RNA sequence: CCUCCUUAUUUUGGCACUCUGUCACCUCUGUAGUGAUGAUGUGAAUGCUUAUGGGAGGGACAUUAAUCAGGGACUAUGCCUUCGGUGCCAAAACUAGUGUUUUGGUUCCAUCCUCGAUGUCCUGUACAUAU
Number, nucleotide and partner (000 for none) at each position: 001c058002c057003u056004c055005c054006u000007u000008a000009u000010u000011u000012u000013g000014g000015c047016a046017c000018u044019c043020u000021g000022u000023c038024a037025c000026c035027u000028c000029u000030g000031u000032a000033g000034u000035g026036a000037u024038g023039a000040u000041g000042u000043g019044a018045a000046u016047g015048c000049u000050u000051a000052u000053g000054g005055g004056a003057g002058g001059g000060a000061c000062a000063u000064u000065a000066a000067u000068c000069a123070g122071g121072g120073a000074c000075u000076a000077u000078g000079c000080c000081u000082u000083c000084g000085g000086u000087g000088c105089c104090a103091a102092a101093a100094c099095u000096a000097g000098u000099g094100u093101u092102u091103u090104g089105g088106u000107u000108c000109c000110a000111u000112c000113c000114u000115c000116g000117a000118u000119g000120u072121c071122c070123u069124g000125u000126a000127c000128a000129u000130a000131u000
Small nucleolar RNA SNORA57: a 131-nucleotide RNA sequence from Stegodyphus mimosarum. It is annotated as an H/ACA-box small nucleolar RNA. About the family: U99 belongs to the H/ACA class of snoRNAs which are thought to guide the sites of modification of uridines to pseudouridines, the target for this family is unknown. NCBI's taxonomy places the organism under Eukaryota, Araneomorphae, Eresoidea, Eresidae, Stegodyphus.